The family of this 92-nucleotide sequence from Zingiber officinale is "mir-156 microRNA precursor family". Its family is annotated with RISC complex and miRNA-mediated post-transcriptional gene silencing in the Gene Ontology. On this family, see Ambros, Cell 2001: "microRNAs: tiny regulators with great potential". The source organism's lineage runs through Eukaryota, Streptophytina, Euphyllophyta, Mesangiospermae and Zingiber. About the family: This family represents the plant microRNA (miRNA) precursor mir-156.
RNA sequence: UUGACAGAAGAGAGUGAGCACCCAUGGUGCUUUUCUUGCAUGAGGAGGGAUCCAUGCUUGAAGCUAUGCGUGCUCACUUCUCUAUCUGUCAC
Numbered sequence: 001u002u003g004a005c006a007g008a009a010g011a012g013a014g015u016g017a018g019c020a021c022c023c024a025u026g027g028u029g030c031u032u033u034u035c036u037u038g039c040a041u042g043a044g045g046a047g048g049g050a051u052c053c054a055u056g057c058u059u060g061a062a063g064c065u066a067u068g069c070g071u072g073c074u075c076a077c078u079u080c081u082c083u084a085u086c087u088g089u090c091a092c
Base pairs, nucleotide, nucleotide: 002091003090004089005088006087007086008085010082011081012080013078014077015076016075017074018073019072020071021070023068024067025066